[Rfam]
RNA sequence: GCGCCUCUGCGGUGUACGUGAGCGGCUGGGUAGUAUCCUUGAGCCUAAUUUCAUACCCCGGGGACUGAGCUGUCGAUGUGGUUGUGCAUGUCCGCCUUCGCAGCGGAAAGCCUCAAAGCAUCGCGCAGGUCCCCACUUGAACCCCCGGUUCAAGGUCGAAGGUACGCCACGGCACAUGCGGAGUGCGC
Numbered sequence: 001g002c003g004c005c006u007c008u009g010c011g012g013u014g015u016a017c018g019u020g021a022g023c024g025g026c027u028g029g030g031u032a033g034u035a036u037c038c039u040u041g042a043g044c045c046u047a048a049u050u051u052c053a054u055a056c057c058c059c060g061g062g063g064a065c066u067g068a069g070c071u072g073u074c075g076a077u078g079u080g081g082u083u084g085u086g087c088a089u090g091u092c093c094g095c096c097u098u099c100g101c102a103g104c105g106g107a108a109a110g111c112c113u114c115a116a117a118g119c120a121u122c123g124c125g126c127a128g129g130u131c132c133c134c135a136c137u138u139g140a141a142c143c144c145c146c147g148g149u150u151c152a153a154g155g156u157c158g159a160a161g162g163u164a165c166g167c168c169a170c171g172g173c174a175c176a177u178g179c180g181g182a183g184u185g186c187g188c
Base pairs, nucleotide, nucleotide: 005183006182007181008180009179010178011177012175013174014173015172017171018170019169037155038154039153040152041151042150043149044148045147060134061133062132064130065129066128074123075122076121077120078119079118086111087110091107092106093105094104095103
Background: 6S / SsrS RNA: a 188-nucleotide RNA sequence from Thioalkalivibrio denitrificans. The family's consensus secondary structure is taken from published work. A search with the family's covariance model found it, with a score of 88 bits. It is annotated as a non-coding RNA gene. On this family, see Wassarman and Storz, Cell 2000: "6S RNA regulates E. coli RNA polymerase activity".